This 157-nucleotide RNA from Clostridiales bacterium CHKCI001 belongs to the Rfam family "Clostridiales-1 RNA".
It scores 94 bits against the family's covariance model.
Rfam 15.1 lists 1,172 matches to the family in 137 species.
[Rfam]
RNA sequence: UAAAAGUGUCGUCAAUGGACUGACAGCCAGGGUACUUAUACCCUGUGCUGACUGGACAUUCGACGACCUGACCUGUAUGAGCAAGUAAGGCAUUUGCCUGGAUUGCGAAUACAGGCAGCGAUGUCGAGAGUGCACAGCACGAAGACAUCGGCUUUUA
Numbered sequence: 001u002a003a004a005a006g007u008g009u010c011g012u013c014a015a016u017g018g019a020c021u022g023a024c025a026g027c028c029a030g031g032g033u034a035c036u037u038a039u040a041c042c043c044u045g046u047g048c049u050g051a052c053u054g055g056a057c058a059u060u061c062g063a064c065g066a067c068c069u070g071a072c073c074u075g076u077a078u079g080a081g082c083a084a085g086u087a088a089g090g091c092a093u094u095u096g097c098c099u100g101g102a103u104u105g106c107g108a109a110u111a112c113a114g115g116c117a118g119c120g121a122u123g124u125c126g127a128g129a130g131u132g133c134a135c136a137g138c139a140c141g142a143a144g145a146c147a148u149c150g151g152c153u154u155u156u157a
Base pairs, nucleotide, nucleotide: 001157002156003155004154008067009066010065011064014060015059016058017057020054022052024050025049026048027047030043031042032041033040034039072115073114074113075112076111077110078109081106082105083104084103088099089098090097091096119150120149121148122147123146124145125144130140131139132138133137